The family of this 59-nucleotide RNA from Monodelphis domestica is "mir-7398 microRNA precursor family". Rfam's curators put it in the seed alignment.
RNA sequence: UGUGUAGAGGGGAGUGAGGGUACCACGCACUAUCGGGUAACCUUUUCUACUCUCACAGU
Numbered sequence: 001u002g003u004g005u006a007g008a009g010g011g012g013a014g015u016g017a018g019g020g021u022a023c024c025a026c027g028c029a030c031u032a033u034c035g036g037g038u039a040a041c042c043u044u045u046u047c048u049a050c051u052c053u054c055a056c057a058g059u
Base pairs, nucleotide, nucleotide: 002056003055004054006053007052008051009050011048014046016044017043018042022038023037024036